Rfam assigns this 78-nucleotide sequence from Miscanthus lutarioriparius to the family "Small nucleolar RNA R160".
Rfam describes the family as follows. snoR160 is a C/D box small nucleolar RNA, which acts as a methylation guide for 25S ribosomal RNA in plants. snoR160 has been alternatively named snoZ270 in rice.
It scores 59 bits against the family's covariance model.
The family's RNA type in Rfam is C/D-box small nucleolar RNA.
For this family Rfam cites "The high diversity of snoRNAs in plants: identification and comparative study of 120 snoRNA genes from Oryza sativa" (Chen et al., Nucleic Acids Res, 2003).
NCBI's taxonomy places the organism under Eukaryota, Poales, Poaceae, Panicoideae, Miscanthus.
Gene Ontology terms of the family: nucleolus and RNA processing.
RNA sequence: AGCAAAUGCGGAAGGUAUACCAUCUGAAAUUGUGCUGUUUAUAAUUCUUUGGAUGGUCUUCAAAGUUCUAUGAUUGCU
Numbered sequence: 001a002g003c004a005a006a007u008g009c010g011g012a013a014g015g016u017a018u019a020c021c022a023u024c025u026g027a028a029a030u031u032g033u034g035c036u037g038u039u040u041a042u043a044a045u046u047c048u049u050u051g052g053a054u055g056g057u058c059u060u061c062a063a064a065g066u067u068c069u070a071u072g073a074u075u076g077c078u
Stems, first nucleotide, its partner, number of pairs: 001078005
Dot-bracket structure: (((((....................................................................)))))